A member of the RNA family "S15-Halobacteria ribosomal protein leader" from Halanaeroarchaeum sulfurireducens, 64 nucleotides long. The sequence is in the family's curated seed alignment. Clan: Ribosomal Protein S15 Leader clan.
RNA sequence: UAGGGAACCGCACGACCGCAAAUCUGACUCGUCCACGCUCGUGGACUCGGGAUUGCGGUAGUGC
Numbered sequence: 001u002a003g004g005g006a007a008c009c010g011c012a013c014g015a016c017c018g019c020a021a022a023u024c025u026g027a028c029u030c031g032u033c034c035a036c037g038c039u040c041g042u043g044g045a046c047u048c049g050g051g052a053u054u055g056c057g058g059u060a061g062u063g064c
Stems, first nucleotide, its partner, number of pairs: 010064004015059007024051002031046006